[Rfam]
Small nucleolar RNA snoR8a: an 84-nucleotide RNA from Ficedula albicollis. It scores 39 bits against the family's covariance model.
RNA sequence: UUGAAUGUUGUGACUUUCCAAAUACAGAGUUCAGACUGGAAAAGUAUUUUGAUAGAGAACACACAUUCAUAGAAUCUGAGCAUC
Numbered sequence: 001u002u003g004a005a006u007g008u009u010g011u012g013a014c015u016u017u018c019c020a021a022a023u024a025c026a027g028a029g030u031u032c033a034g035a036c037u038g039g040a041a042a043a044g045u046a047u048u049u050u051g052a053u054a055g056a057g058a059a060c061a062c063a064c065a066u067u068c069a070u071a072g073a074a075u076c077u078g079a080g081c082a083u084c
Stems, first nucleotide, its partner, number of pairs: 003084002006082002
Notes: Rfam 15.1 lists 956 matches to the family in 245 species. Rfam links the family to the GO terms nucleolus and RNA processing.